RNA sequence: UGAUUUGGUCAUUAGUUGAGUAUCCUAACGGGCUUUUCAACAAAUUGAUUACCAAAUCCAUAAAUAGGAGAUGUGUUAGUGGCCCGUAUUGCUGGCAUUAACGUCCCUGAU
Numbered sequence: 001u002g003a004u005u006u007g008g009u010c011a012u013u014a015g016u017u018g019a020g021u022a023u024c025c026u027a028a029c030g031g032g033c034u035u036u037u038c039a040a041c042a043a044a045u046u047g048a049u050u051a052c053c054a055a056a057u058c059c060a061u062a063a064a065u066a067g068g069a070g071a072u073g074u075g076u077u078a079g080u081g082g083c084c085c086g087u088a089u090u091g092c093u094g095g096c097a098u099u100a101a102c103g104u105c106c107c108u109g110a111u
Base pairs, nucleotide, nucleotide: 004056005055006054007053008052009051011049012048013047024095025094029086030085031084032083037110038109039108
A member of the RNA family "Alpha operon ribosome binding site" from Pseudoalteromonas denitrificans, 111 nucleotides long.
Rfam describes the family as follows. The bacterial alpha operon ribosome binding site is surrounded by this complex pseudoknotted structure.
On this family, see Schlax et al., J Biol Chem 2001: "Translational repression of the Escherichia coli alpha operon mRNA: importance of an mRNA conformational switch and a ternary entrapment complex".
NCBI's taxonomy places the organism under Bacteria, Pseudomonadati, Gammaproteobacteria, Alteromonadales, Pseudoalteromonas denitrificans.
Its family is annotated with ribosome binding in the Gene Ontology.
By type it is a cis-regulatory element.